The record is a 135-nucleotide RNA from Hordeum vulgare, which matches "Small nucleolar RNA snoR77" in Rfam.
It scores 86 bits against the family's covariance model.
By type it is an H/ACA-box small nucleolar RNA.
Rfam 15.1 lists 649 matches to the family in 221 species.
RNA sequence: AGGCAGCCUCUUGCCAUUGCAGUGGCAUUGGAGGUGUUGCGUUGCUCGGAUAGUAAAACUUUUGCUAUUCAGAUUGGCCGAGAGGGUGGCUCCUGCUCCCCUCCUUGAAGCUGGUAUAGUAGUCUUAAGGACAUU
Numbered sequence: 001a002g003g004c005a006g007c008c009u010c011u012u013g014c015c016a017u018u019g020c021a022g023u024g025g026c027a028u029u030g031g032a033g034g035u036g037u038u039g040c041g042u043u044g045c046u047c048g049g050a051u052a053g054u055a056a057a058a059c060u061u062u063u064g065c066u067a068u069u070c071a072g073a074u075u076g077g078c079c080g081a082g083a084g085g086g087u088g089g090c091u092c093c094u095g096c097u098c099c100c101c102u103c104c105u106u107g108a109a110g111c112u113g114g115u116a117u118a119g120u121a122g123u124c125u126u127a128a129g130g131a132c133a134u135u
Stems, first nucleotide, its partner, number of pairs: 002038004007034002009031002012027005059129003064124001066122001071117001073115003077111002082103005